[Rfam]
RNA: Bacterial RNase P class B
RNA sequence: CUGUUCAGGUGAUCGCUGCACGUUUACGUGUAGAGGAAAGUCCAUGCUCGCACUGGCUGAGAUGCCAGUAGUGUUCGUGCCUAGCCAAUUCAUAAGCUAGGGUAGUCUGGCAUUAUGCUGGGCUAACGGCAGGUGACGCACCUAAGUCUUUAGAUAUGGUGUGAUAGCCUUGAAAGUGCCACAGUGACGGAGUCCAUGUGGAAACAUAUGGAGUGGAACGAGGUAAACCCCGCGAGCGAGAAACCCAAAAUAUGGUAGGGGCAUUUUCUGAACCGGAAAUGAACGGGUCAGAUGAACAAGAUCGUAGGUCUUGUAGAUAGAUGGUUACCACCGGAGUACGAGGUUCAUCACCGCUUGUAGUACUAAGGUACAGAACAUGGCUUAUCGAA
Number, nucleotide and partner (000 for none) at each position: 001c000002u000003g000004u389005u388006c387007a385008g329009g328010u327011g326012a325013u324014c323015g000016c033017u032018g031019c030020a029021c028022g000023u000024u000025u000026a000027c000028g021029u020030g019031u018032a017033g016034a000035g000036g000037a000038a383039a382040g381041u000042c380043c379044a378045u377046g376047c240048u239049c238050g237051c236052a069053c068054u067055g066056g065057c064058u000059g000060a000061g000062a000063u000064g057065c056066c055067a054068g053069u052070a000071g000072u000073g000074u000075u235076c234077g233078u232079g231080c101081c100082u099083a098084g097085c096086c000087a000088a000089u000090u000091c000092a000093u000094a000095a000096g085097c084098u083099a082100g081101g080102g127103u125104a124105g123106u122107c121108u120109g119110g118111c117112a116113u000114u000115a000116u112117g111118c110119u109120g108121g107122g106123c105124u104125a103126a000127c102128g230129g229130c000131a170132g169133g168134u167135g000136a000137c000138g000139c161140a160141c159142c158143u000144a000145a000146g155147u154148c153149u000150u000151u000152a000153g148154a147155u146156a000157u000158g142159g141160u140161g139162u000163g000164a000165u000166a000167g134168c133169c132170u131171u000172g000173a000174a000175a000176g228177u227178g224179c223180c222181a000182c000183a000184g000185u000186g000187a000188c000189g000190g000191a000192g000193u212194c211195c210196a209197u208198g207199u206200g205201g000202a000203a000204a000205c200206a199207u198208a197209u196210g195211g194212a193213g000214u000215g000216g000217a000218a000219c000220g000221a000222g180223g179224u178225a000226a000227a177228c176229c129230c128231c079232g078233c077234g076235a075236g051237c050238g049239a048240g047241a000242a000243a000244c260245c259246c258247a000248a000249a000250a000251u000252a000253u000254g000255g000256u000257a000258g246259g245260g244261g000262c000263a000264u295265u294266u000267u292268c291269u290270g289271a000272a000273c000274c000275g000276g000277a000278a000279a000280u000281g000282a000283a000284c000285g000286g000287g000288u000289c270290a269291g268292a267293u000294g265295a264296a314297c313298a312299a311300g310301a309302u308303c307304g000305u000306a000307g303308g302309u301310c300311u299312u298313g297314u296315a000316g000317a000318u000319a000320g000321a000322u000323g014324g013325u012326u011327a010328c009329c008330a000331c368332c367333g000334g000335a364336g363337u362338a361339c360340g000341a000342g000343g000344u000345u000346c000347a000348u000349c000350a000351c000352c000353g000354c000355u000356u000357g000358u000359a000360g339361u338362a337363c336364u335365a000366a000367g332368g331369u000370a000371c000372a000373g000374a000375a000376c046377a045378u044379g043380g042381c040382u039383u038384a000385u007386c000387g006388a005389a004